A member of the RNA family "Bacterial large signal recognition particle RNA" from Lacicoccus alkaliphilus, 266 nucleotides long.
[Rfam]
RNA sequence: CCGUGCUAAGCGGGGAAUUAGCGGUGCCCUGUACUUGCAAUCCGCUCCAGCAAGGCUGAAUCCCGCUUCUGAGGGAGUCAGUGUGAAGACUGCCUUAAUCUUACCGGUGUUGAGAUCCCGGUCCUAUGCAAUGGGACGUCAUGAACCAUGUCAGGUCCGGAAGGAAGCAGCAUUAAGUGACCCAUCCCAUGUGCCGUAGGGCAGCCGGGAUUGAGUCGGUAUUUUAAGUAACGUUUGUGCUGAUUUCUCGAGGAAGCGGUGCACGG
Number, nucleotide and partner (000 for none) at each position: 001c266002c265003g264004u263005g262006c261007u000008a000009a057010g056011c055012g030013g029014g028015g027016a000017a025018u024019u023020a000021g000022c000023g019024g018025u017026g000027c015028c014029c013030u012031g000032u000033a000034c054035u053036u052037g051038c050039a000040a000041u000042c000043c000044g000045c000046u000047c000048c000049a000050g038051c037052a036053a035054g034055g011056c010057u009058g000059a000060a000061u000062c000063c259064c258065g257066c256067u255068u254069c253070u000071g249072a248073g247074g246075g245076a244077g000078u243079c242080a241081g240082u239083g238084u237085g236086a235087a234088g000089a000090c000091u230092g229093c000094c000095u227096u226097a225098a224099u000100c000101u000102u000103a220104c219105c000106g217107g216108u215109g000110u000111u000112g000113a000114g212115a211116u210117c209118c208119c207120g206121g205122u204123c200124c199125u198126a197127u196128g195129c191130a190131a000132u189133g188134g187135g186136a185137c000138g181139u180140c179141a178142u177143g000144a000145a000146c000147c000148a173149u172150g171151u170152c000153a000154g000155g000156u165157c164158c163159g000160g000161a000162a000163g158164g157165a156166a000167g000168c000169a000170g151171c150172a149173u148174u000175a000176a000177g142178u141179g140180a139181c138182c000183c000184a000185u136186c135187c134188c133189a132190u130191g129192u000193g000194c000195c128196g127197u126198a125199g124200g123201g000202c000203a000204g122205c121206c120207g119208g118209g117210a116211u115212u114213g000214a000215g108216u107217c106218g000219g104220u103221a000222u000223u000224u098225u097226a096227a095228g000229u092230a091231a000232c000233g000234u087235u086236u085237g084238u083239g082240c081241u080242g079243a078244u076245u075246u074247c073248u072249c071250g000251a000252g000253g069254a068255a067256g066257c065258g064259g063260u000261g006262c005263a004264c003265g002266g001
By type it is a non-coding RNA gene.
From the family's description: The signal recognition particle (SRP) is a universally conserved ribonucleoprotein involved in the co-translational targeting of proteins to membranes.